Pseudomon-groES RNA: a 114-nucleotide RNA sequence from Pseudomonas asplenii. By type it is a cis-regulatory element. Taxonomically the source falls in Pseudomonas (Bacteria, Pseudomonadota, Gammaproteobacteria, Pseudomonadaceae).
RNA sequence: GUAACGGUCACCGCAAGGUUUUUGGCGUAAAUCGCCAGACAGUAUUCCGCGGUUCGCUUGCCGAGCCGUCACCGGCAACGCCGGAUUUGCUAAUUGGCCGGUACUGAUACCGGU
Numbered sequence: 001g002u003a004a005c006g007g008u009c010a011c012c013g014c015a016a017g018g019u020u021u022u023u024g025g026c027g028u029a030a031a032u033c034g035c036c037a038g039a040c041a042g043u044a045u046u047c048c049g050c051g052g053u054u055c056g057c058u059u060g061c062c063g064a065g066c067c068g069u070c071a072c073c074g075g076c077a078a079c080g081c082c083g084g085a086u087u088u089g090c091u092a093a094u095u096g097g098c099c100g101g102u103a104c105u106g107a108u109a110c111c112g113g114u
Stems, first nucleotide, its partner, number of pairs: 010019003021039006049069008072084004097114006